[Rfam]
RNA sequence: UAGCAGUAGGGAGGGGAGCCGUUGCGCUGUAAGAGAUGAACUCUGAUGUCUCACAGUGAACCGGUCUCUUUCCCUGCUACUUC
Numbered sequence: 001u002a003g004c005a006g007u008a009g010g011g012a013g014g015g016g017a018g019c020c021g022u023u024g025c026g027c028u029g030u031a032a033g034a035g036a037u038g039a040a041c042u043c044u045g046a047u048g049u050c051u052c053a054c055a056g057u058g059a060a061c062c063g064g065u066c067u068c069u070u071u072c073c074c075u076g077c078u079a080c081u082u083c
Stems, first nucleotide, its partner, number of pairs: 006077005015068002018065004025058006033052003